[Rfam]
The record is a 96-nucleotide RNA sequence from Geothrix sp., which matches "Bacterial small signal recognition particle RNA" in Rfam.
The organism belongs to Geothrix, within Bacteria.
Rfam describes the family as follows. The signal recognition particle (SRP) is a universally conserved ribonucleoprotein involved in the co-translational targeting of proteins to membranes.

RNA sequence: AGCCGGGCCCCAUGCAUCGGGGUGCGAUGAACCGGGUCAGGUCGGAAGAAGCAGCCCUAAGUCGUUCCCCCGAGUGCCGUGGUCAGCCCGGCCCCU
Dot-bracket structure: ...(((((.((((((.((((((.(((((.....((((....((....))....))))...)))))..)))))))...)))))...)))))......